A member of the RNA family "Bacterial large subunit ribosomal RNA" from Elusimicrobium minutum, 593 nucleotides of a longer RNA.
RNA sequence: UGAAUGCCUUGGUGCCAGAAGUCGAUGAAAGACGUGAUAAGCUGCGAUAAGCCUCGGGUAGGAGCAAAUAUCCUAUAAUCCGGGGAUUUCUGAAUCGGGGAACCGUUAUGGGUGUGAGCCCAUAAAUCAUAACUUGAAUACAGGAGCUUCGGCUCUUGAGAUAGGGUUAUAGAAGACAACCCAGGGAAGUGAAACAUCUCAGUACCUGGAGGAAAAGAAAUCAAAGAGAUUCCGUAAGUAGUGGCGAGCGAAAGCGGAAAUAGUCCAAACCGUCUCCCGCACUGUAUCCAUUAAGGUGGCUACAGUGCGUGGGGCGGGGUUGUAGGGCUUGUUCGUGUUAGACACAAAGAGUUACCAAUCUGGAAGUUAGCUGAACGGUCUGGAAAGUCCGACCAUAGAAGGUGAUAGUCCUUUAAGCAAAAACUUACCAGACUCUUAACAAGUACCUGAGUACUGCCGGGCACGUGCAAUCCGGUAGGAAUCUGGGGAGACCACUCUCCAAGACUAAAUACUUUCUGGCAACCGAUAGUGAACCAGUACCGCGAGGGAAAGGCGAAAAGAACCCCGGGAGGGGAGUGAAAUAGAACCUGAAA
Numbered sequence: 001u002g003a004a005u006g007c008c009u010u011g012g013u014g015c016c017a018g019a020a021g022u023c024g025a026u027g028a029a030a031g032a033c034g035u036g037a038u039a040a041g042c043u044g045c046g047a048u049a050a051g052c053c054u055c056g057g058g059u060a061g062g063a064g065c066a067a068a069u070a071u072c073c074u075a076u077a078a079u080c081c082g083g084g085g086a087u088u089u090c091u092g093a094a095u096c097g098g099g100g101a102a103c104c105g106u107u108a109u110g111g112g113u114g115u116g117a118g119c120c121c122a123u124a125a126a127u128c129a130u131a132a133c134u135u136g137a138a139u140a141c142a143g144g145a146g147c148u149u150c151g152g153c154u155c156u157u158g159a160g161a162u163a164g165g166g167u168u169a170u171a172g173a174a175g176a177c178a179a180c181c182c183a184g185g186g187a188a189g190u191g192a193a194a195c196a197u198c199u200c201a202g203u204a205c206c207u208g209g210a211g212g213a214a215a216a217g218a219a220a221u222c223a224a225a226g227a228g229a230u231u232c233c234g235u236a237a238g239u240a241g242u243g244g245c246g247a248g249c250g251a252a253a254g255c256g257g258a259a260a261u262a263g264u265c266c267a268a269a270c271c272g273u274c275u276c277c278c279g280c281a282c283u284g285u286a287u288c289c290a291u292u293a294a295g296g297u298g299g300c301u302a303c304a305g306u307g308c309g310u311g312g313g314g315c316g317g318g319g320u321u322g323u324a325g326g327g328c329u330u331g332u333u334c335g336u337g338u339u340a341g342a343c344a345c346a347a348a349g350a351g352u353u354a355c356c357a358a359u360c361u362g363g364a365a366g367u368u369a370g371c372u373g374a375a376c377g378g379u380c381u382g383g384a385a386a387g388u389c390c391g392a393c394c395a396u397a398g399a400a401g402g403u404g405a406u407a408g409u410c411c412u413u414u415a416a417g418c419a420a421a422a423a424c425u426u427a428c429c430a431g432a433c434u435c436u437u438a439a440c441a442a443g444u445a446c447c448u449g450a451g452u453a454c455u456g457c458c459g460g461g462c463a464c465g466u467g468c469a470a471u472c473c474g475g476u477a478g479g480a481a482u483c484u485g486g487g488g489a490g491a492c493c494a495c496u497c498u499c500c501a502a503g504a505c506u507a508a509a510u511a512c513u514u515u516c517u518g519g520c521a522a523c524c525g526a527u528a529g530u531g532a533a534c535c536a537g538u539a540c541c542g543c544g545a546g547g548g549a550a551a552g553g554c555g556a557a558a559a560g561a562a563c564c565c566c567g568g569g570a571g572g573g574g575a576g577u578g579a580a581a582u583a584g585a586a587c588c589u590g591a592a593a
Stems, first nucleotide, its partner, number of pairs: 006588001007553002011524002013521007020513002022176002030091003033046003052085007061073003096105003106125007127173002129170007180211001181209005191198002221227002230509001231258005241249002262506004270317007324448003329442005357434001359432005364426005370418003376391003380387001394398001400412003454478008485500005540547002563574004
The source organism's lineage runs through Bacteria, Elusimicrobiota, Elusimicrobiales, Elusimicrobiaceae and Elusimicrobium minutum. Its family is annotated with ribosome and structural constituent of ribosome in the Gene Ontology.